[Rfam]
RNA: TPP riboswitch aptamer (THI element)
RNA sequence: UUUCACAGCUACGGGAGCCUAGAAGACUAGGCUGAGAAGAUGACUAUUCUGUCACAGACCGUGAACCUGAUCUGGAUCAUGCCAGCGGAGGGAAGACUGUUUUGUAAUAUC
Dot-bracket structure: .....(((.(((((..(((((......)))))......(.((((......)))))...))))...(((...((((......))))...)))...).)))............